[Rfam]
This 185-nucleotide RNA sequence from Acinetobacter baylyi belongs to the Rfam family "6S / SsrS RNA". Lineage of the source: Bacteria > Pseudomonadati > Gammaproteobacteria > Moraxellaceae > Acinetobacter baylyi. E. coli 6S RNA was the first non coding RNA to be sequenced, but its function was unknown until recently. It consists of 184 nucleotides that fold into an extended hairpin structure with a large single-stranded internal bulge. The 6S RNA specifically associates with RNA polymerase holoenzyme containing the sigma70 specificity factor. For this family Rfam cites "6S RNA regulates E. coli RNA polymerase activity" (Wassarman and Storz, Cell, 2000).
RNA sequence: UUGUCUCUGGGAUGCUCGCCAGCGAGUCAGAAUCCCCUGAGCCGAUACUAUCACUUUAGGAUAGCGUUCUGCAUAUUUAGAGUGUAUGCCUACCCAGAGUAGGAAACCCAGCAAGUAUGCGUCGCUUCCACCUUGAACUUAAGGGUUCAAGGGUAAUGACAGGCAGCGGCAUCUUCGGAGGCAUU
Numbered sequence: 001u002u003g004u005c006u007c008u009g010g011g012a013u014g015c016u017c018g019c020c021a022g023c024g025a026g027u028c029a030g031a032a033u034c035c036c037c038u039g040a041g042c043c044g045a046u047a048c049u050a051u052c053a054c055u056u057u058a059g060g061a062u063a064g065c066g067u068u069c070u071g072c073a074u075a076u077u078u079a080g081a082g083u084g085u086a087u088g089c090c091u092a093c094c095c096a097g098a099g100u101a102g103g104a105a106a107c108c109c110a111g112c113a114a115g116u117a118u119g120c121g122u123c124g125c126u127u128c129c130a131c132c133u134u135g136a137a138c139u140u141a142a143g144g145g146u147u148c149a150a151g152g153g154u155a156a157u158g159a160c161a162g163g164c165a166g167c168g169g170c171a172u173c174u175u176c177g178g179a180g181g182c183a184u185u
Base pairs, nucleotide, nucleotide: 002183003182004181005180006179007178008177009176010175011174012172013171014170015169017168018167019166034153035152036151038149039148040147041146042145043144059129060128061127063126064125065124066123068121072119073118074117075116076115077114078113084107085106089103090102091101092100093099